[Rfam]
A member of the RNA family "Alphaproteobacterial sRNA ar35" from Xaviernesmea oryzae, 146 nucleotides long. The family has 13 seed sequences and 266 matches in Rfam 15.1. For this family Rfam cites "A survey of sRNA families in alpha-proteobacteria" (del Val et al., RNA Biol, 2012). The match comes from Rfam's covariance-model search (58 bits).
RNA sequence: AAAUGCGAUCCGGCUCUUGAAUGCUUCGCCCGAUACACCAUCUUAAGCCGCAUACAUCGUUUCCAGCUGCGUGACCACGGAUGUACUGGCACCGCUGUCGAGACGAUUGAAGGAAGGUCGGGUUUCAUCGCCCGGCCUUUUUCUUU
Numbered sequence: 001a002a003a004u005g006c007g008a009u010c011c012g013g014c015u016c017u018u019g020a021a022u023g024c025u026u027c028g029c030c031c032g033a034u035a036c037a038c039c040a041u042c043u044u045a046a047g048c049c050g051c052a053u054a055c056a057u058c059g060u061u062u063c064c065a066g067c068u069g070c071g072u073g074a075c076c077a078c079g080g081a082u083g084u085a086c087u088g089g090c091a092c093c094g095c096u097g098u099c100g101a102g103a104c105g106a107u108u109g110a111a112g113g114a115a116g117g118u119c120g121g122g123u124u125u126c127a128u129c130g131c132c133c134g135g136c137c138u139u140u141u142u143c144u145u146u
Stems, first nucleotide, its partner, number of pairs: 003053004007048001009046001056107006064097004072091002075089003109144001111142013